Shown here is a 100-nucleotide RNA from Halosimplex carlsbadense, a member of the family "L4-Archaeoglobi ribosomal protein leades". On this family, see Eckert and Weinberg, BMC Microbiol 2020: "Discovery of 20 novel ribosomal leader candidates in bacteria and archaea". The base pairs follow the family's consensus structure, which is taken from published work.
[Rfam]
RNA sequence: CUGAUGAACGCGUACGGGUCAAUUGCGGCCUGCAACACCCAGUCUCGCUCCCCGUGCCCUCCGGAAUGGAGGUCGGGGAGGGGGAGCGCGUCUCCGUCAG
Numbered sequence: 001c002u003g004a005u006g007a008a009c010g011c012g013u014a015c016g017g018g019u020c021a022a023u024u025g026c027g028g029c030c031u032g033c034a035a036c037a038c039c040c041a042g043u044c045u046c047g048c049u050c051c052c053c054g055u056g057c058c059c060u061c062c063g064g065a066a067u068g069g070a071g072g073u074c075g076g077g078g079a080g081g082g083g084g085a086g087c088g089c090g091u092c093u094c095c096g097u098c099a100g
Stems, first nucleotide, its partner, number of pairs: 001100005008091006016040003023035005043085004048080002052078002